[Rfam]
RNA sequence: UCUUUCAACUAGCAACACACAUUUACUGGAGAUAGUACUAUUGAAGGAGACACCAGUAAAUGUGUGUUGCUAGUUGAAAGA
Numbered sequence: 001u002c003u004u005u006c007a008a009c010u011a012g013c014a015a016c017a018c019a020c021a022u023u024u025a026c027u028g029g030a031g032a033u034a035g036u037a038c039u040a041u042u043g044a045a046g047g048a049g050a051c052a053c054c055a056g057u058a059a060a061u062g063u064g065u066g067u068u069g070c071u072a073g074u075u076g077a078a079a080g081a
Base pairs, nucleotide, nucleotide: 001081002080003079005077006076007075011071012070013069014068015067016066017065018064022060023059024058025057026056027055028054029053

The family of this 81-nucleotide sequence from Ixodes scapularis is "mir-16 microRNA precursor family". Its family is annotated with miRNA-mediated post-transcriptional gene silencing and RISC complex in the Gene Ontology. A search with the family's covariance model found it, with a score of 42 bits.